[Rfam]
RNA sequence: CUUACAGAGGUCAUUGGCAUUCUGUCCACCUUCAAAUUCUCUGCUUCUUAUCUUAUAUGCAAAGAGGAAGAAAAAUGGAGGUGGGCAUCCUGCCAACCGAUCUCUGUUGG
Number, nucleotide and partner (000 for none) at each position: 001c000002u000003u000004a000005c000006a000007g000008a000009g000010g000011u100012c000013a000014u096015u095016g094017g093018c092019a091020u000021u000022c000023u087024g086025u085026c084027c083028a082029c081030c080031u079032u078033c077034a000035a000036a000037u000038u000039c000040u000041c000042u000043g000044c000045u000046u000047c000048u000049u000050a000051u000052c000053u000054u000055a000056u000057a000058u000059g000060c000061a000062a000063a000064g000065a000066g000067g000068a000069a000070g000071a000072a000073a000074a000075a000076u000077g033078g032079a031080g030081g029082u028083g027084g026085g025086c024087a023088u000089c000090c000091u019092g018093c017094c016095a015096a014097c000098c000099g000100a011101u000102c000103u000104c000105u000106g000107u000108u000109g000110g000
MIR394 microRNA precursor family: a 110-nucleotide sequence from Phoenix dactylifera. A reference for the family is Jones-Rhoades and Bartel (2004), "Computational identification of plant microRNAs and their targets, including a stress-induced miRNA", Mol Cell. The family's consensus secondary structure was predicted with WAR. Rfam links the family to the GO terms miRNA-mediated post-transcriptional gene silencing and RISC complex.